The record is a 151-nucleotide RNA from Desulfovibrio legallii, which matches "FMN riboswitch aptamer (RFN element)" in Rfam. The base pairs follow the family's consensus structure, which is taken from published work. The source organism's lineage runs through Bacteria, Pseudomonadati, Desulfovibrionia, Desulfovibrionales and Desulfovibrio. The match comes from Rfam's covariance-model search (96 bits).

RNA sequence: GCCGUUUCUCAGGGCGGGGUGCAAGUCCCCACCGGCGGUGAUGCGGCGGGCCUCGGCCUGGCCGUCAGCCCGCGAGCGCCCGUGACCGGGGUCAGCAGAUUCGGUGCGAAUCCGAAGCCGACGGUAACAGUCCGGAUGGAAGAGAACGGCC
Numbered sequence: 001g002c003c004g005u006u007u008c009u010c011a012g013g014g015c016g017g018g019g020u021g022c023a024a025g026u027c028c029c030c031a032c033c034g035g036c037g038g039u040g041a042u043g044c045g046g047c048g049g050g051c052c053u054c055g056g057c058c059u060g061g062c063c064g065u066c067a068g069c070c071c072g073c074g075a076g077c078g079c080c081c082g083u084g085a086c087c088g089g090g091g092u093c094a095g096c097a098g099a100u101u102c103g104g105u106g107c108g109a110a111u112c113c114g115a116a117g118c119c120g121a122c123g124g125u126a127a128c129a130g131u132c133c134g135g136a137u138g139g140a141a142g143a144g145a146a147c148g149g150c151c
Stems, first nucleotide, its partner, number of pairs: 003149001006146005017029003031131002033120002035073004068118002076096002100116005122134003